[Rfam]
RNA: c-di-GMP-I riboswitch aptamer
Organism: Caminicella sporogenes
RNA sequence: UUUUGAUAAAGGCAAACUUAUCGAAAGAUAAGGACGCAAAGCCAAGGGCCUAAAGUAAAGAACUUUCUUUACUAUGGCAGCCGGUUACCGUA
Numbered sequence: 001u002u003u004u005g006a007u008a009a010a011g012g013c014a015a016a017c018u019u020a021u022c023g024a025a026a027g028a029u030a031a032g033g034a035c036g037c038a039a040a041g042c043c044a045a046g047g048g049c050c051u052a053a054a055g056u057a058a059a060g061a062a063c064u065u066u067c068u069u070u071a072c073u074a075u076g077g078c079a080g081c082c083g084g085u086u087a088c089c090g091u092a
Base pairs, nucleotide, nucleotide: 012037013036017032018031019030020029021028022027040086041085042084043083046082047081048078049077050076055072056071057070058069059068060067061066